[Rfam]
RNA sequence: GUCCACGUUGCGGCGGACCAGAGCCAGAAACCUGUCAGGAUCGUGAGUGCAGCCGGCCACAGCCUCGUCGUCAUAGCGAGGAGGCCGGCGGU
Numbered sequence: 001g002u003c004c005a006c007g008u009u010g011c012g013g014c015g016g017a018c019c020a021g022a023g024c025c026a027g028a029a030a031c032c033u034g035u036c037a038g039g040a041u042c043g044u045g046a047g048u049g050c051a052g053c054c055g056g057c058c059a060c061a062g063c064c065u066c067g068u069c070g071u072c073a074u075a076g077c078g079a080g081g082a083g084g085c086c087g088g089c090g091g092u
Stems, first nucleotide, its partner, number of pairs: 001018004025045002031039002049092002052089007063081006
RNA: Rhizobiales sRNA Atu_Ti1